[Rfam]
Nucleotides: 131
Base pairs, nucleotide, nucleotide: 008037009036010035011034013031014030015029016028017027018026069127070126072124073123074122075121078115079114080113081112087110088109089108090107091106092105093104095102096101
Number, partner (000 for none) and nucleotide at each position: 001000u002000a003000a004000a005000a006000g007000a008037a009036a010035u011034g012000a013031g014030a015029g016028a017027c018026a019000g020000u021000u022000u023000g024000u025000a026018u027017g028016u029015c030014u031013c032000u033000g034011c035010g036009u037008u038000g039000a040000g041000g042000a043000g044000a045000a046000c047000a048000c049000c050000g051000a052000g053000g054000u055000a056000g057000a058000a059000c060000a061000a062000a063000a064000u065000c066000a067000a068000c069127g070126g071000c072124c073123g074122a075121g076000a077000u078115a079114u080113c081112g082000u083000u084000u085000c086000a087110g088109u089108c090107g091106u092105c093104a094000u095102u096101u097000u098000a099000u100000g101096g102095a103000u104093u105092g106091g107090c108089g109088a110087u111000c112081u113080g114079a115078u116000u117000g118000u119000u120000g121075c122074u123073u124072g125000u126070c127069c128000a129000c130000a131000u
This 131-nucleotide RNA from Quercus lobata belongs to the Rfam family "Small nucleolar RNA snoR111".
The family's RNA type in Rfam is H/ACA-box small nucleolar RNA.
Rfam links the family to the GO terms nucleolus and RNA processing.
Rfam 15.1 lists 533 matches to the family in 223 species.